[Rfam]
RNA: FMN riboswitch aptamer (RFN element)
RNA sequence: AACGUGUUCCGGGGUCGGUGAAAGUCCGAGCCGGCGGUGAGAGUCCGCGACCCGCGAGCGACGAGCAGUCGCGAACGGUUGAACCGGUGGAAUUCCGGUACCGACGGUGAGAGUCCGGAGGGGAGGAACACGCG
Numbered sequence: 001a002a003c004g005u006g007u008u009c010c011g012g013g014g015u016c017g018g019u020g021a022a023a024g025u026c027c028g029a030g031c032c033g034g035c036g037g038u039g040a041g042a043g044u045c046c047g048c049g050a051c052c053c054g055c056g057a058g059c060g061a062c063g064a065g066c067a068g069u070c071g072c073g074a075a076c077g078g079u080u081g082a083a084c085c086g087g088u089g090g091a092a093u094u095c096c097g098g099u100a101c102c103g104a105c106g107g108u109g110a111g112a113g114u115c116c117g118g119a120g121g122g123g124a125g126g127a128a129c130a131c132g133c134g
Stems, first nucleotide, its partner, number of pairs: 003132008016028003030114002032103002034048004043101002052078002083099005105117003